RNA sequence: GAGACACCCCCCUGGGGCAAGACUUGCUUCAAUGGGGCUUUGGUGCUCACUGAGUCUGCCCCCUGUGUCCUU
Number, nucleotide and partner (000 for none) at each position: 001g071002a000003g069004a068005c067006a066007c065008c000009c000010c000011c000012c000013u000014g062015g061016g060017g059018c058019a057020a000021g056022a055023c054024u000025u000026g000027c000028u000029u053030c052031a051032a000033u049034g048035g047036g046037g044038c043039u000040u000041u000042g000043g038044u037045g000046c036047u035048c034049a033050c000051u031052g030053a029054g023055u022056c021057u019058g018059c017060c016061c015062c014063c000064u000065g007066u006067g005068u004069c003070c000071u001072u000
This 72-nucleotide RNA sequence from Myotis davidii belongs to the Rfam family "mir-9229 microRNA precursor family".
It scores 71 bits against the family's covariance model.
The base pairs follow the family's consensus structure, which was predicted with RNAalifold.
NCBI's taxonomy places the organism under Eukaryota, Opisthokonta, Tetrapoda, Vespertilionidae, Myotis.
Rfam 15.1 lists 27,225 matches to the family in 9 species.